Rfam assigns this 217-nucleotide sequence from Paenibacillus piri to the family "glmS glucosamine-6-phosphate activated ribozyme aptamer". Pairs were carried over by alignment from the consensus structure, which is taken from published work.
RNA sequence: CCUAAAUUAACAGCGCCAGAGCUUGCGAGAGUGUCGGACGGAUUUGCGCUCCAGUGUGGAGAUAAUGUAGAUUUGCAUUCGACAGCUGCUUGCAAGUUGACGAGGUGAAGGUGUUCGAAACAUUCGGCGGGGACCUUCCGGUAGCCGGUAACUACCGUUAAGUUGGAAAGCAAACCAUCCGGGCGACCGGAUGAACAAGAGUCCAACAUGAUCGAAA
Numbered sequence: 001c002c003u004a005a006a007u008u009a010a011c012a013g014c015g016c017c018a019g020a021g022c023u024u025g026c027g028a029g030a031g032u033g034u035c036g037g038a039c040g041g042a043u044u045u046g047c048g049c050u051c052c053a054g055u056g057u058g059g060a061g062a063u064a065a066u067g068u069a070g071a072u073u074u075g076c077a078u079u080c081g082a083c084a085g086c087u088g089c090u091u092g093c094a095a096g097u098u099g100a101c102g103a104g105g106u107g108a109a110g111g112u113g114u115u116c117g118a119a120a121c122a123u124u125c126g127g128c129g130g131g132g133a134c135c136u137u138c139c140g141g142u143a144g145c146c147g148g149u150a151a152c153u154a155c156c157g158u159u160a161a162g163u164u165g166g167a168a169a170g171c172a173a174a175c176c177a178u179c180c181g182g183g184c185g186a187c188c189g190g191a192u193g194a195a196c197a198a199g200a201g202u203c204c205a206a207c208a209u210g211a212u213c214g215a216a217a
Base pairs, nucleotide, nucleotide: 020098021097022096023095024094025093026092027091029089107138108137109136110135111134115127116126117125118124139157140156141155142154143153144152162207163206164205165204166203167202176193177192178191179190180189181188182187
This entry contains a glucosamine-6-phosphate activated ribozyme that is found in the mRNA for GlmS. GlmS is an enzyme that uses fructose-6-phosphate and glutamine to generate glucosamine-6-phosphate. A search with the family's covariance model found it, with a score of 97 bits.